[Rfam]
Shown here is a 67-nucleotide sequence, a member of the family "Bacillaceae-1 RNA". The family's RNA type in Rfam is small RNA.
RNA sequence: ACACAAUGUUUUUUUAUUAAAAUCAACACAUAAUGUGUUAAAAUAUAAAUGCAACACAUCAUGUGUU
Numbered sequence: 001a002c003a004c005a006a007u008g009u010u011u012u013u014u015u016a017u018u019a020a021a022a023u024c025a026a027c028a029c030a031u032a033a034u035g036u037g038u039u040a041a042a043a044u045a046u047a048a049a050u051g052c053a054a055c056a057c058a059u060c061a062u063g064u065g066u067u
Stems, first nucleotide, its partner, number of pairs: 011049003015045003025039005053067005
Dot-bracket structure: ..........(((.(((.......(((((.....)))))...))).)))...(((((.....)))))
It scores 42 bits against the family's covariance model.